[Rfam]
Rfam assigns this 119-nucleotide RNA sequence from Camellia sinensis to the family "Small nucleolar RNA snoR104". Pairs were carried over by alignment from the consensus structure, which was predicted with WAR. The family has 8 seed sequences and 612 matches in Rfam 15.1. A reference for the family is Marker et al. (2002), "Experimental RNomics: identification of 140 candidates for small non-messenger RNAs in the plant Arabidopsis thaliana", Curr Biol. The source organism's lineage runs through Eukaryota, Streptophyta, Tracheophyta, Pentapetalae and Camellia sinensis.
RNA sequence: GGGGGGCAUCCACAAGCAGAGGUGUUACCUGAUGCAAUCUUCCUACAGAAAAUCUUUGUAAUUUCUUGCUUGUGGUUACUUGAGUUAGUUCUGCAAGUCCCAAAUUACAAGACACAUGA
Numbered sequence: 001g002g003g004g005g006g007c008a009u010c011c012a013c014a015a016g017c018a019g020a021g022g023u024g025u026u027a028c029c030u031g032a033u034g035c036a037a038u039c040u041u042c043c044u045a046c047a048g049a050a051a052a053u054c055u056u057u058g059u060a061a062u063u064u065c066u067u068g069c070u071u072g073u074g075g076u077u078a079c080u081u082g083a084g085u086u087a088g089u090u091c092u093g094c095a096a097g098u099c100c101c102a103a104a105u106u107a108c109a110a111g112a113c114a115c116a117u118g119a
Stems, first nucleotide, its partner, number of pairs: 001030003005026006055112003068098008078089003